[Rfam]
RNA sequence: AUGUUCUGAUAUUGUAAAUCGCUCUGGAUAAGAGCGUCUGCUAAAUGACUAAAA
Number, nucleotide and partner (000 for none) at each position: 001a000002u000003g000004u000005u000006c000007u000008g000009a000010u000011a000012u000013u043014g041015u040016a039017a000018a000019u000020c036021g035022c034023u033024c032025u031026g000027g000028a000029u000030a000031a025032g024033a023034g022035c021036g020037u000038c000039u016040g015041c014042u000043a013044a000045a000046u000047g000048a000049c000050u000051a000052a000053a000054a000
The record is a 54-nucleotide RNA sequence from Coregonus sp. 'balchen', which matches "UnaL2 LINE 3' element" in Rfam. A search with the family's covariance model found it, with a score of 61 bits. Rfam's curators write: The eel long interspersed element (LINE) UnaL2 and its partner short interspersed element (SINE) share a conserved 3' tail containing a stem-loop that is critical for their retrotransposition. Lineage of the source: Eukaryota > Metazoa > Bilateria > Salmoniformes > Coregonus. By type it is a cis-regulatory element.